[Rfam]
RNA sequence: UUUAUAAAUGGCAAACCUGUCGAAAGGCAGGGACGCAAAGCCAAGGGCCUAAGGUGUUUUGCUAUGGCAGCCGGUCGCUGAGA
Numbered sequence: 001u002u003u004a005u006a007a008a009u010g011g012c013a014a015a016c017c018u019g020u021c022g023a024a025a026g027g028c029a030g031g032g033a034c035g036c037a038a039a040g041c042c043a044a045g046g047g048c049c050u051a052a053g054g055u056g057u058u059u060u061g062c063u064a065u066g067g068c069a070g071c072c073g074g075u076c077g078c079u080g081a082g083a
Base pairs, nucleotide, nucleotide: 001083003080004079011036012035016031017030018029019028020027021026034070040075041074042073045072046071047068048067049066

The family of this 83-nucleotide RNA from Caminicella sporogenes is "c-di-GMP-I-GGC riboswitch aptamer". The organism belongs to Caminicella sporogenes, within Bacteria. A reference for the family is Smith et al. (2012), "Structural and biochemical characterization of linear dinucleotide analogues bound to the c-di-GMP-I aptamer", Biochemistry.